Small nucleolar RNA snoR109: a 105-nucleotide RNA from Vigna radiata. By type it is an H/ACA-box small nucleolar RNA. NCBI's taxonomy places the organism under Eukaryota, Viridiplantae, Mesangiospermae, Vigna, Vigna radiata.
RNA sequence: UGGCUGUAGCUAAAUCGAACCUGCUUGUGAAGCUAACUGGCCGGUUGUUGUGAUCUCUUUUUGGGAUCUCUGUCAAUAAAUCUGCUUACCGAGCUUCUAACAAUC
Dot-bracket structure: ............................((((((....(((.((((((((.......................)))).)))).))).....))))))........